A member of the RNA family "MIR6288 microRNA precursor family" from Ipomoea nil, 92 nucleotides long. Pairs were carried over by alignment from the consensus structure, which was predicted with RNAalifold. The source organism's lineage runs through Eukaryota, Viridiplantae, eudicotyledons, asterids and Ipomoea. Rfam 15.1 lists 293 matches to the family in 9 species. A search with the family's covariance model found it, with a score of 78 bits.
RNA sequence: UAAGUAGUAAGUACUAACCAUUUUGUACAUUGUGCUUUUAGAGUUACAACUCUAAAAGCACAAUGUACAAAAUGGUUAGUACUUACUACUUA
Numbered sequence: 001u002a003a004g005u006a007g008u009a010a011g012u013a014c015u016a017a018c019c020a021u022u023u024u025g026u027a028c029a030u031u032g033u034g035c036u037u038u039u040a041g042a043g044u045u046a047c048a049a050c051u052c053u054a055a056a057a058g059c060a061c062a063a064u065g066u067a068c069a070a071a072a073u074g075g076u077u078a079g080u081a082c083u084u085a086c087u088a089c090u091u092a
Stems, first nucleotide, its partner, number of pairs: 002091038